[Rfam]
RNA: permuted transfer-messenger RNA
RNA sequence: GGCGAUAAACGGAACGUAGAAUAAGCGUUGUGGACCCGGGGGCGGUACCCGGCGUCUCCACCAUUGAUCCUCCCGGUUUUUGCGGGAGUGUGGGGACGAAACAGGCUCGACACGCGCGGUAAAGGCGUUUCUUUUGCCCGGCAUUGUACCACCGUCAUCGGGCUAAAUCACAAGUGCCAACGAUAACUCAGAGGUGCUCGCUGUCGCUGCAUAA
Numbered sequence: 001g002g003c004g005a006u007a008a009a010c011g012g013a014a015c016g017u018a019g020a021a022u023a024a025g026c027g028u029u030g031u032g033g034a035c036c037c038g039g040g041g042g043c044g045g046u047a048c049c050c051g052g053c054g055u056c057u058c059c060a061c062c063a064u065u066g067a068u069c070c071u072c073c074c075g076g077u078u079u080u081u082g083c084g085g086g087a088g089u090g091u092g093g094g095g096a097c098g099a100a101a102c103a104g105g106c107u108c109g110a111c112a113c114g115c116g117c118g119g120u121a122a123a124g125g126c127g128u129u130u131c132u133u134u135u136g137c138c139c140g141g142c143a144u145u146g147u148a149c150c151a152c153c154g155u156c157a158u159c160g161g162g163c164u165a166a167a168u169c170a171c172a173a174g175u176g177c178c179a180a181c182g183a184u185a186a187c188u189c190a191g192a193g194g195u196g197c198u199c200g201c202u203g204u205c206g207c208u209g210c211a212u213a214a
Stems, first nucleotide, its partner, number of pairs: 001138005014128004026116003030113003036052005053098009139154003